[Rfam]
Nucleotides: 136
Base pairs, nucleotide, nucleotide: 002132003131004130005129006128007127013117014116015115016114017113018112019111023106039105045061046060047059048058049057052097062084063083064082065081066080067079087103088102089101090100
Number, partner (000 for none) and nucleotide at each position: 001000a002132c003131g004130g005129c006128g007127g008000a009000u010000g011000c012000c013117g014116g015115u016114g017113a018112a019111a020000c021000u022000a023106c024000a025000u026000u027000g028000u029000u030000a031000c032000g033000g034000a035000c036000a037000a038000c039105c040000a041000g042000g043000u044000c045061g046060u047059c048058g049057g050000u051000u052097c053000a054000a055000a056000u057049c058048c059047g060046a061045c062084c063083c064082g065081g066080g067079c068000c069000a070000c071000c072000a073000u074000c075000g076000a077000c078000g079067g080066u081065c082064c083063g084062g085000u086000a087103g088102c089101u090100c091000a092000g093000u094000c095000a096000g097052g098000u099000a100090g101089a102088g103087c104000a105039g106023g107000a108000a109000c110000g111019u112018u113017u114016c115015a116014c117013c118000a119000c120000a121000c122000a123000c124000u125000u126000g127007c128006c129005g130004c131003c132002g133000u134000u135000u136000g
This 136-nucleotide sequence from Luteolibacter ambystomatis belongs to the Rfam family "Y RNA-like".
Rfam classes the family as a small RNA.
Rfam describes the family as follows. In Deinococcus radiodurans Rsr is tethered via Y RNA to the exoribonuclease PNPase and channels single-stranded RNA into the PNPase cavity. Rsr and Y RNA enhance degradation of structured RNAs by PNPase. This role could be conserved, as Rsr and ncRNAs called YrlA and YrlB (Y RNA like) also associate with PNPase in an evolutionary distant bacterium Salmonella Typhimurium.
The family has 6 seed sequences and 124 matches in Rfam 15.1.